[Rfam]
RNA sequence: GGGAGCACACGCGGGAGUCCGGGGGUACGCCGGGCUGAGAGUGCGACGCGCCGUCGCUGACCGCCACACCUGAUCCGGAUCAUGCCGGCGAAGGGAGGGCGAAUGAAGAGUCU
Numbered sequence: 001g002g003g004a005g006c007a008c009a010c011g012c013g014g015g016a017g018u019c020c021g022g023g024g025g026u027a028c029g030c031c032g033g034g035c036u037g038a039g040a041g042u043g044c045g046a047c048g049c050g051c052c053g054u055c056g057c058u059g060a061c062c063g064c065c066a067c068a069c070c071u072g073a074u075c076c077g078g079a080u081c082a083u084g085c086c087g088g089c090g091a092a093g094g095g096a097g098g099g100c101g102a103a104u105g106a107a108g109a110g111u112c113u
Stems, first nucleotide, its partner, number of pairs: 006101001008099001010097001011064004016058001017035005043057006069094003075088004